The family of this 92-nucleotide sequence from Salinimonas marina is "t44 RNA".
[Rfam]
RNA sequence: UACGAACUUAUUAAAUAACACACAUAUACCGACACUUGCUAUCGGGGUGUCCGGGAAACCGGAUCGAUACAAGGGGUAUAUGGAGGCCUAAC
Numbered sequence: 001u002a003c004g005a006a007c008u009u010a011u012u013a014a015a016u017a018a019c020a021c022a023c024a025u026a027u028a029c030c031g032a033c034a035c036u037u038g039c040u041a042u043c044g045g046g047g048u049g050u051c052c053g054g055g056a057a058a059c060c061g062g063a064u065c066g067a068u069a070c071a072a073g074g075g076g077u078a079u080a081u082g083g084a085g086g087c088c089u090a091a092c
Stems, first nucleotide, its partner, number of pairs: 023082008035073004041068004049064005
The family's consensus secondary structure was predicted with LocARNA.